RNA sequence: CUAGCAUGCUGGAGCUCCGCAGCGGCCCCCGGAACCCCGGUUUCGAAACCGUAUUCACAUCGGAGCUUGU
Numbered sequence: 001c002u003a004g005c006a007u008g009c010u011g012g013a014g015c016u017c018c019g020c021a022g023c024g025g026c027c028c029c030c031g032g033a034a035c036c037c038c039g040g041u042u043u044c045g046a047a048a049c050c051g052u053a054u055u056c057a058c059a060u061c062g063g064a065g066c067u068u069g070u
Base pairs, nucleotide, nucleotide: 012068013067014066015065016064017063018062019061023051024050025049030045031044032043033042035040